A member of the RNA family "Small nucleolar RNA snoR97" from Asparagus officinalis, 113 nucleotides long. NCBI's taxonomy places the organism under Eukaryota, Tracheophyta, Euphyllophyta, Asparagaceae, Asparagus. It scores 53 bits against the family's covariance model. The base pairs follow the family's consensus structure, which was predicted with WAR.

RNA sequence: AUGCAAAUGUUGCUAUGGAGGCUGAUAAUAAAACUCAUAAAAGCACGUGUUGUCAUCACCUUCAUCUCUUGCUUGCAUAUUAGAGAUUGGAGCUGAAUAACUACACAACAUUC
Numbered sequence: 001a002u003g004c005a006a007a008u009g010u011u012g013c014u015a016u017g018g019a020g021g022c023u024g025a026u027a028a029u030a031a032a033a034c035u036c037a038u039a040a041a042a043g044c045a046c047g048u049g050u051u052g053u054c055a056u057c058a059c060c061u062u063c064a065u066c067u068c069u070u071g072c073u074u075g076c077a078u079a080u081u082a083g084a085g086a087u088u089g090g091a092g093c094u095g096a097a098u099a100a101c102u103a104c105a106c107a108a109c110a111u112u113c
Base pairs, nucleotide, nucleotide: 047106048105049104050103052101058094060092061091062090063089065086066085067084068083
Dot-bracket structure: ..............................................((((.(.....(.((((.((((..............))))..)))).)......).)))).......